Rfam assigns this 126-nucleotide RNA from Ceyx cyanopectus to the family "Small nucleolar RNA SNORA40". Rfam describes the family as follows. The snoRNA ACA 40 belongs to the H/ACA family of snoRNAs and guides the pseudouridylation of 28S rRNA subunit at position U4565. NB This family has a high threshold value to exclude a large number of closely related sequences that do not appear to have conserved H and ACA boxes, and may be pseudogenes. NCBI's taxonomy places the organism under Eukaryota, Opisthokonta, Eumetazoa, Dinosauria, Ceyx. The family's consensus secondary structure was predicted with RNAalifold.
[Rfam]
RNA sequence: AGCACAUGUUCAAUUUUUGUCUGUUCUGUAGACAAAAGCCUGGAACCUAGUGCUUAGAAAAAAUCCUUCUUUUGCAACCCACAGCUGAUGAAUAUAUUGGCUGUGUUACUUACAUGAAGGGACAAU
Numbered sequence: 001a002g003c004a005c006a007u008g009u010u011c012a013a014u015u016u017u018u019g020u021c022u023g024u025u026c027u028g029u030a031g032a033c034a035a036a037a038g039c040c041u042g043g044a045a046c047c048u049a050g051u052g053c054u055u056a057g058a059a060a061a062a063a064u065c066c067u068u069c070u071u072u073u074g075c076a077a078c079c080c081a082c083a084g085c086u087g088a089u090g091a092a093u094a095u096a097u098u099g100g101c102u103g104u105g106u107u108a109c110u111u112a113c114a115u116g117a118a119g120g121g122a123c124a125a126u
Base pairs, nucleotide, nucleotide: 001054002053003052004051005050008046010044014038015037016036017035018034019033020032025030064122065121066120067119070117071116073114074113080105081104082103083102084101085100086099087098088097089096
Source information: By type it is an H/ACA-box small nucleolar RNA. Gene Ontology terms of the family: nucleolus and RNA processing.